[Rfam]
RNA: Streptomyces-metK RNA
Organism: Streptomyces roseochromogenus
RNA sequence: GCGAGACAGUGGCCCAUUGGCCGAGUGCGACCGAUAAACUGUUCGCGGUCGACGCCGGGCGCAGCCCCGCGCGUCGCCGCCAAUGAUCAGCCAGCAGCCGCUGCAACCACAGGGAG
Numbered sequence: 001g002c003g004a005g006a007c008a009g010u011g012g013c014c015c016a017u018u019g020g021c022c023g024a025g026u027g028c029g030a031c032c033g034a035u036a037a038a039c040u041g042u043u044c045g046c047g048g049u050c051g052a053c054g055c056c057g058g059g060c061g062c063a064g065c066c067c068c069g070c071g072c073g074u075c076g077c078c079g080c081c082a083a084u085g086a087u088c089a090g091c092c093a094g095c096a097g098c099c100g101c102u103g104c105a106a107c108c109a110c111a112g113g114g115a116g
Base pairs, nucleotide, nucleotide: 047078048077049076051074055071056069058068059067092103093102094101095100